[Rfam]
RNA sequence: CCCAAGCCCGGGCUCUUUCCACUGAGCCACGCUGUGACUUGCAGCGUGGCUCAGUGGAAAGAGCACGGGCUUUGGA
Dot-bracket structure: .((.((((((.((((((((..(((((((((...............)))))))))..)))))))).))))))..)).
The family of this 76-nucleotide RNA from Ornithorhynchus anatinus is "mir-130 microRNA precursor family". Pairs were carried over by alignment from the consensus structure, which was predicted with PFOLD. Taxonomically the source falls in Ornithorhynchus (Eukaryota, Euteleostomi, Sarcopterygii, Amniota).